RNA: Small nucleolar RNA U3
RNA sequence: AAGACUAUACUUUCAGGGAUCAUUUCUAUAGUUUGUUACUAGAGAAGUUUCUCUGAACGUGUAUAGCACUGAAAACCACAAAGAAGAGGUGCAGCAUUAUCUCCUAAGUGUAAAGCCGGCUCUUGAUGUUGCUUUGCUGCAACUGCCAUUUGCCAUUGAUGAUCGUUCUUUUCUUCCUUUGGGAGACUGGGAAGGAAAGGAUGCAAUCUGAGUGG
Numbered sequence: 001a002a003g004a005c006u007a008u009a010c011u012u013u014c015a016g017g018g019a020u021c022a023u024u025u026c027u028a029u030a031g032u033u034u035g036u037u038a039c040u041a042g043a044g045a046a047g048u049u050u051c052u053c054u055g056a057a058c059g060u061g062u063a064u065a066g067c068a069c070u071g072a073a074a075a076c077c078a079c080a081a082a083g084a085a086g087a088g089g090u091g092c093a094g095c096a097u098u099a100u101c102u103c104c105u106a107a108g109u110g111u112a113a114a115g116c117c118g119g120c121u122c123u124u125g126a127u128g129u130u131g132c133u134u135u136g137c138u139g140c141a142a143c144u145g146c147c148a149u150u151u152g153c154c155a156u157u158g159a160u161g162a163u164c165g166u167u168c169u170u171u172u173c174u175u176c177c178u179u180u181g182g183g184a185g186a187c188u189g190g191g192a193a194g195g196a197a198a199g200g201a202u203g204c205a206a207u208c209u210g211a212g213u214g215g
Base pairs, nucleotide, nucleotide: 002040003039006035007034009032010031011030015027016026017025018024049065054061076215077214078213079212094204095203096202097201098200100198102196103195104194105193108166109165110164118154119153120152124148125147127145128143129142130141131140132139169190170189172186173185174184175183176182177181